[Rfam]
RNA sequence: ACUCUGGAAAGCGAAAAGCACCGAAGGAGCAAUCUAAAAUUUAGAGAAUCUCUCAGGUAAAAAUACAGAGU
Numbered sequence: 001a002c003u004c005u006g007g008a009a010a011g012c013g014a015a016a017a018g019c020a021c022c023g024a025a026g027g028a029g030c031a032a033u034c035u036a037a038a039a040u041u042u043a044g045a046g047a048a049u050c051u052c053u054c055a056g057g058u059a060a061a062a063a064u065a066c067a068g069a070g071u
Stems, first nucleotide, its partner, number of pairs: 001071006020058003023054002027052003033045002
A member of the RNA family "Glycine riboswitch aptamer" from Paratissierella segnis, 71 nucleotides long. Rfam's curators write: This family represents the bacterial glycine riboswitch. The base pairs follow the family's consensus structure.